A member of the RNA family "SAM riboswitch aptamer (S box leader)" from Streptomyces sp. SID4985, 156 nucleotides long.
Nucleotides: 156
Stems, first nucleotide, its partner, number of pairs: 003154006013043005021032003026122004044114004049110002051106002118148001123145009
Number, partner (000 for none) and nucleotide at each position: 001000a002000g003154c004153u005152c006151a007150u008149c009000c010000a011000g012000a013043g014042g015041g016040g017039c018000a019000g020000a021032g022031g023030g024000a025000a026122a027121c028120g029119g030023c031022c032021c033000u034000g035000c036000g037000a038000a039017g040016c041015c042014c043013c044114g045113g046112c047111a048000a049110c050109u051106c052105c053000a054000g055000u056000c057000g058000g059000u060000c061000u062000c063000g064000u065000g066000c067000g068000c069000g070000a071000c072000g073000c074000a075000u076000c077000c078000g079000c080000g081000a082000c083000g084000c085000a086000c087000c088000g089000c090000g091000a092000g093000g094000c095000u096000c097000c098000c099000g100000g101000c102000u103000a104000g105052g106051g107000a108000a109050g110049g111047u112046g113045c114044c115000a116000a117000a118148u119029c120028c121027g122026u123145c124144u125143c126142a127141c128140g129139g130138c131137g132000a133000a134000g135000u136000g137131c138130g139129u140128c141127g142126u143125g144124a145123g146000g147000a148118a149008g150007a151006u152005g153004a154003g155000g156000a

From the family's description: The SAM riboswitch is found upstream of a number of genes which code for proteins involved in methionine or cysteine biosynthesis in Gram-positive bacteria.